[Rfam]
RNA: Bacterial large subunit ribosomal RNA, nucleotides 1302 to 1687
RNA sequence: GAGAGGCAGGUGAGAAUCCUGCCCGUCGAAAACCUAAGGUUUCCUGAGGAAGGCUCGUCCGCUCAGGGUUAGUCGGGACCUAAGCCCAGGCCGAAAGGCGUAGGCGAUGGACAACAGGUUGAAAUUCCUGUACCACCUAAAAUCGUUUGAGAGAUGGAGUGACACAGUAGGAUAGGCUCAGCGCACCGUUGGUUGUGUGCGUCUAAGCUGGUAGGGAGUUAGAAGAGGCAAAUCCCUUUUAACAUUAAUCCUGAGAAGUGAUGGGGAGCGAAAUUUAAGUAGCGAACUGGCUGAUUCCACACUGUCGAGAAAAGCUUCUAUCGAGAUUUCUAGGUGCCCGUACCGCAAACCGACACAGGUAGGUGAGGAGAGAAUCCUAAGACGAU
Numbered sequence: 001g002a003g004a005g006g007c008a009g010g011u012g013a014g015a016a017u018c019c020u021g022c023c024c025g026u027c028g029a030a031a032a033c034c035u036a037a038g039g040u041u042u043c044c045u046g047a048g049g050a051a052g053g054c055u056c057g058u059c060c061g062c063u064c065a066g067g068g069u070u071a072g073u074c075g076g077g078a079c080c081u082a083a084g085c086c087c088a089g090g091c092c093g094a095a096a097g098g099c100g101u102a103g104g105c106g107a108u109g110g111a112c113a114a115c116a117g118g119u120u121g122a123a124a125u126u127c128c129u130g131u132a133c134c135a136c137c138u139a140a141a142a143u144c145g146u147u148u149g150a151g152a153g154a155u156g157g158a159g160u161g162a163c164a165c166a167g168u169a170g171g172a173u174a175g176g177c178u179c180a181g182c183g184c185a186c187c188g189u190u191g192g193u194u195g196u197g198u199g200c201g202u203c204u205a206a207g208c209u210g211g212u213a214g215g216g217a218g219u220u221a222g223a224a225g226a227g228g229c230a231a232a233u234c235c236c237u238u239u240u241a242a243c244a245u246u247a248a249u250c251c252u253g254a255g256a257a258g259u260g261a262u263g264g265g266g267a268g269c270g271a272a273a274u275u276u277a278a279g280u281a282g283c284g285a286a287c288u289g290g291c292u293g294a295u296u297c298c299a300c301a302c303u304g305u306c307g308a309g310a311a312a313a314g315c316u317u318c319u320a321u322c323g324a325g326a327u328u329u330c331u332a333g334g335u336g337c338c339c340g341u342a343c344c345g346c347a348a349a350c351c352g353a354c355a356c357a358g359g360u361a362g363g364u365g366a367g368g369a370g371a372g373a374a375u376c377c378u379a380a381g382a383c384g385a386u
Base pairs, nucleotide, nucleotide: 005023006022007021008020009019010018024384025383026382027381032364033363034362035361038344039343043067044066045065046064047063048062052060053059074340075339076338077337079110080109084105085104086103088101090099091098092097114131115130116129117128118127134336135335136334137333138332139331141329142328151322152321156318157317158316159315160314164305165304166303167302170298171297172296175292176291177290178289181202182201183200184199185198186197203264204263207259208258209257214252215251216250219242220241221240222239223238224237225236227235228234268283269282271280350359351358366378367377368376369375